Guanidine-I riboswitch aptamer: a 99-nucleotide RNA sequence. It is one of the family's seed sequences. Gene Ontology term of the family: regulation of gene expression. This family represents a conserved RNA structure found upstream of the ykkC and yxkD genes in Bacillus subtilis and related genes in other bacteria. The function of this family is unclear although it has been suggested that it may function to switch on efflux pumps and detoxification systems in response to harmful environmental molecules.
[Rfam]
RNA sequence: CCAAUAGCUGGCUAGGGUUCCGGUUCACGCAGGUGAAUGUCUGGUCCGAGAGCUGGCGACCUCUGCGAGGUUACACGGCGGGACAAAAGCCCGGGAGAC
Numbered sequence: 001c002c003a004a005u006a007g008c009u010g011g012c013u014a015g016g017g018u019u020c021c022g023g024u025u026c027a028c029g030c031a032g033g034u035g036a037a038u039g040u041c042u043g044g045u046c047c048g049a050g051a052g053c054u055g056g057c058g059a060c061c062u063c064u065g066c067g068a069g070g071u072u073a074c075a076c077g078g079c080g081g082g083a084c085a086a087a088a089g090c091c092c093g094g095g096a097g098a099c
Base pairs, nucleotide, nucleotide: 007057008056009055010054011053012052015047016046020044021043022041023038024037025036026035027034028033058072059071060070061069062068074094076097080092081091082090